[Rfam]
RNA: Small nucleolar RNA SNORD18
Organism: Nelumbo nucifera
RNA sequence: GGGAGAUGAUGAGUUCUUAUUGGUCCGUGUUUCUGAAUUUACUGUGACUGAGAAACCAUUCCUACUUCUGAUCUC
Numbered sequence: 001g002g003g004a005g006a007u008g009a010u011g012a013g014u015u016c017u018u019a020u021u022g023g024u025c026c027g028u029g030u031u032u033c034u035g036a037a038u039u040u041a042c043u044g045u046g047a048c049u050g051a052g053a054a055a056c057c058a059u060u061c062c063u064a065c066u067u068c069u070g071a072u073c074u075c
Stems, first nucleotide, its partner, number of pairs: 001075004